[Rfam]
RNA: Staphylococcus sRNA 808
Organism: Triavirus tv2
RNA sequence: UGGUCUAUUGCCAGAAGAUAAACGACUACAACUUAAAGACUACUUUAUCAAGCAAAUUAGAGCAUACAUGGAUGGUAAAAUACCGGUUGCUACUGUCUCAAAUGAUUCAAGUGCUUCAAGUAAUACAGUUAAGCCAGUUGCGAGUGCAUGGAAACGUAAUAAAUAUGGUACUUACUACAUGGAAGAAAGUGCUAGAUUCACAAACGGCAAUCAACCAAUCACAGUAAGAAAAGUGGGGCCAUUUUUAUCUUGUCC
Numbered sequence: 001u002g003g004u005c006u007a008u009u010g011c012c013a014g015a016a017g018a019u020a021a022a023c024g025a026c027u028a029c030a031a032c033u034u035a036a037a038g039a040c041u042a043c044u045u046u047a048u049c050a051a052g053c054a055a056a057u058u059a060g061a062g063c064a065u066a067c068a069u070g071g072a073u074g075g076u077a078a079a080a081u082a083c084c085g086g087u088u089g090c091u092a093c094u095g096u097c098u099c100a101a102a103u104g105a106u107u108c109a110a111g112u113g114c115u116u117c118a119a120g121u122a123a124u125a126c127a128g129u130u131a132a133g134c135c136a137g138u139u140g141c142g143a144g145u146g147c148a149u150g151g152a153a154a155c156g157u158a159a160u161a162a163a164u165a166u167g168g169u170a171c172u173u174a175c176u177a178c179a180u181g182g183a184a185g186a187a188a189g190u191g192c193u194a195g196a197u198u199c200a201c202a203a204a205c206g207g208c209a210a211u212c213a214a215c216c217a218a219u220c221a222c223a224g225u226a227a228g229a230a231a232a233g234u235g236g237g238g239c240c241a242u243u244u245u246u247a248u249c250u251u252g253u254c255c
Base pairs, nucleotide, nucleotide: 002216003215004214007211008210009209010208011207012206019150020149023146024145027142029140030139031138032137033136038130039129040128041127045123046122047121048120050116051115052114053113061091062090063089064088066087067086069085070084071083072081073080094109095108098105099104166194167193168192169191170190171189172188173187175185176184221253222252223251224248225247226246227245228244229243230242233239234238